[Rfam]
RNA sequence: GGGUGCAGCGAGCGUCGCUGCAGGAACUGGGUUGGUCGGGCCGCCAGCC
Numbered sequence: 001g002g003g004u005g006c007a008g009c010g011a012g013c014g015u016c017g018c019u020g021c022a023g024g025a026a027c028u029g030g031g032u033u034g035g036u037c038g039g040g041c042c043g044c045c046a047g048c049c
Base pairs, nucleotide, nucleotide: 005021006020007019008018009017010016030049031048032047033046034045035044036043
Dot-bracket structure: ....((((((.....))))))........(((((((......)))))))
A member of the RNA family "nhaA-I RNA" from a Nannocystaceae bacterium, 49 nucleotides long. By type it is a riboswitch. Rfam describes the family as follows. Acidobacteria, Alphaproteobacteria, Betaproteobacteria and Gammaproteobacteria, Verrucomicrobia, cand. division NC10. The source organism's lineage runs through Bacteria, Pseudomonadati, Myxococcota, Nannocystales and Nannocystaceae.